[Rfam]
RNA sequence: AAAGGGGAAGCCGAAAACCUUAUCAUAGAGUAGGCG
Numbered sequence: 001a002a003a004g005g006g007g008a009a010g011c012c013g014a015a016a017a018c019c020u021u022a023u024c025a026u027a028g029a030g031u032a033g034g035c036g
Stems, first nucleotide, its partner, number of pairs: 002021004010035003
DUF805b RNA: a 36-nucleotide RNA sequence. The family is grouped with related families in Rfam's "DUF805 clan".